[Rfam]
Nucleotides: 065
Base pairs, nucleotide, nucleotide: 001065002064003063004062005061006060007059008058009057010056011055012054015052016051017050021041023039024038025037026036027035028034029033
Number, partner (000 for none) and nucleotide at each position: 001065a002064a003063g004062g005061c006060u007059c008058u009057g010056u011055u012054u013000u014000g015052a016051c017050c018000g019000a020000a021041u022000c023039c024038u025037g026036a027035c028034g029033c030000g031000g032000c033029g034028c035027g036026u037025c038024a039023g040000a041021g042000a043000c044000u045000c046000a047000u048000u049000a050017g051016g052015u053000c054012a055011g056010a057009c058008g059007g060006g061005g062004c063003c064002u065001u